[Rfam]
RNA: Bacillaceae-1 RNA
RNA sequence: CAGUACGGUACAAAGGCUAACUACGCCACGUUCUGUGAAAGUGCCUUCGUAACCAACAUCCUAUUGG
Numbered sequence: 001c002a003g004u005a006c007g008g009u010a011c012a013a014a015g016g017c018u019a020a021c022u023a024c025g026c027c028a029c030g031u032u033c034u035g036u037g038a039a040a041g042u043g044c045c046u047u048c049g050u051a052a053c054c055a056a057c058a059u060c061c062u063a064u065u066g067g
Stems, first nucleotide, its partner, number of pairs: 011049001013047005027037003053067004